[Rfam]
RNA sequence: AUCAUCUGGGCAUCUUGUUAAAGUGCAGAUUCUGACUCAGCAGGUUUGGGAUGGAGCCCAGGAUUCUGCAUUUCUAAUGAGCUCCCAGGUGAUGCUGA
Numbered sequence: 001a002u003c004a005u006c007u008g009g010g011c012a013u014c015u016u017g018u019u020a021a022a023g024u025g026c027a028g029a030u031u032c033u034g035a036c037u038c039a040g041c042a043g044g045u046u047u048g049g050g051a052u053g054g055a056g057c058c059c060a061g062g063a064u065u066c067u068g069c070a071u072u073u074c075u076a077a078u079g080a081g082c083u084c085c086c087a088g089g090u091g092a093u094g095c096u097g098a
Base pairs, nucleotide, nucleotide: 003091004090005089009085010084014081015080016079017078018077019076020075021073022072023071025069026068027067028066029065031063032062033061
The record is a 98-nucleotide RNA from Camelus dromedarius, which matches "mir-544 microRNA precursor family" in Rfam. A reference for the family is Chiang et al. (2010), "Mammalian microRNAs: experimental evaluation of novel and previously annotated genes", Genes Dev. Its family is annotated with miRNA-mediated post-transcriptional gene silencing and RISC complex in the Gene Ontology. The base pairs follow the family's consensus structure, which was predicted with RNAalifold.